[Rfam]
RNA sequence: AACCUGGUUGAUUCUGCCAGUAGUCAUACGCUCGUCUCAAAGAUUAAGCCAUGCAUGUCUAAGUAUAAAUCUUUUACUUUGAAACUGCGAACGGCUCAUUAUAUCAGUUAUAGUUUAUUUGAUAGUCCCUUUCUACUCGGAUAACUGUAGAAAUUCUAGAGCUAAUACGUGCGUCAAGACUCUUCUGGAGUCGUAUUUAUUAGAUUGAAACCAACCCCUUCGGGGUGAUGUGGUGAUUCAUAAUAAGUUUGCGGAUCGCAUGCUUCGGCGGCGACGGAUCAUUCAAGUUUCUGCCCUAUCAGCUUUGGAUGAUAAGGUAUUGGCUUAUCAUGGCUUUAACGGGUAACGGGAAAUUAGGGUUUGAUUCCGGAGAGGGAGCCUGAGAGACGGCUACCACAUCCAAGGAAGGCAGCAGGCGCGUAAAUUACCCAAUCCUGACACAGGGAGGUAGUGACAAUAAAUAAGAAUGCCGGGCCUUUGUAGGUCUGGCAAUUCGAAUGAGAACAAUUUAAACCCCUUAUCGAGUAUCAAUUGGAGGGCAAGUCUGGUGCCAGCAGCCGCGGUAAUUCCAGCUCCAAUAGCGUAUAUUAAAGUUGUUG
Numbered sequence: 001a002a003c004c005u006g007g008u009u010g011a012u013u014c015u016g017c018c019a020g021u022a023g024u025c026a027u028a029c030g031c032u033c034g035u036c037u038c039a040a041a042g043a044u045u046a047a048g049c050c051a052u053g054c055a056u057g058u059c060u061a062a063g064u065a066u067a068a069a070u071c072u073u074u075u076a077c078u079u080u081g082a083a084a085c086u087g088c089g090a091a092c093g094g095c096u097c098a099u100u101a102u103a104u105c106a107g108u109u110a111u112a113g114u115u116u117a118u119u120u121g122a123u124a125g126u127c128c129c130u131u132u133c134u135a136c137u138c139g140g141a142u143a144a145c146u147g148u149a150g151a152a153a154u155u156c157u158a159g160a161g162c163u164a165a166u167a168c169g170u171g172c173g174u175c176a177a178g179a180c181u182c183u184u185c186u187g188g189a190g191u192c193g194u195a196u197u198u199a200u201u202a203g204a205u206u207g208a209a210a211c212c213a214a215c216c217c218c219u220u221c222g223g224g225g226u227g228a229u230g231u232g233g234u235g236a237u238u239c240a241u242a243a244u245a246a247g248u249u250u251g252c253g254g255a256u257c258g259c260a261u262g263c264u265u266c267g268g269c270g271g272c273g274a275c276g277g278a279u280c281a282u283u284c285a286a287g288u289u290u291c292u293g294c295c296c297u298a299u300c301a302g303c304u305u306u307g308g309a310u311g312a313u314a315a316g317g318u319a320u321u322g323g324c325u326u327a328u329c330a331u332g333g334c335u336u337u338a339a340c341g342g343g344u345a346a347c348g349g350g351a352a353a354u355u356a357g358g359g360u361u362u363g364a365u366u367c368c369g370g371a372g373a374g375g376g377a378g379c380c381u382g383a384g385a386g387a388c389g390g391c392u393a394c395c396a397c398a399u400c401c402a403a404g405g406a407a408g409g410c411a412g413c414a415g416g417c418g419c420g421u422a423a424a425u426u427a428c429c430c431a432a433u434c435c436u437g438a439c440a441c442a443g444g445g446a447g448g449u450a451g452u453g454a455c456a457a458u459a460a461a462u463a464a465g466a467a468u469g470c471c472g473g474g475c476c477u478u479u480g481u482a483g484g485u486c487u488g489g490c491a492a493u494u495c496g497a498a499u500g501a502g503a504a505c506a507a508u509u510u511a512a513a514c515c516c517c518u519u520a521u522c523g524a525g526u527a528u529c530a531a532u533u534g535g536a537g538g539g540c541a542a543g544u545c546u547g548g549u550g551c552c553a554g555c556a557g558c559c560g561c562g563g564u565a566a567u568u569c570c571a572g573c574u575c576c577a578a579u580a581g582c583g584u585a586u587a588u589u590a591a592a593g594u595u596g597u598u599g
Stems, first nucleotide, its partner, number of pairs: 004020005022589003026586007035459001037457001041452001042419001048417003052414003057088002062086003069080001095372003105293003110288002114286002120281004136171001138169002145161002148158003178192005197246006210234004216225003256274004261270003295343003302334003309331008347369004351362004374395002377392003397408001399406002425450001427449003433445005465495003468491010502522002504519001506518001532578006545572004554561002
This 599-nucleotide part of an RNA from Nitzschia inconspicua belongs to the Rfam family "Eukaryotic small subunit ribosomal RNA". It scores 1769 bits against the family's covariance model. Gene Ontology terms of the family: structural constituent of ribosome and ribosome. The source organism's lineage runs through Eukaryota, Sar, Ochrophyta, Bacillariophyta and Nitzschia.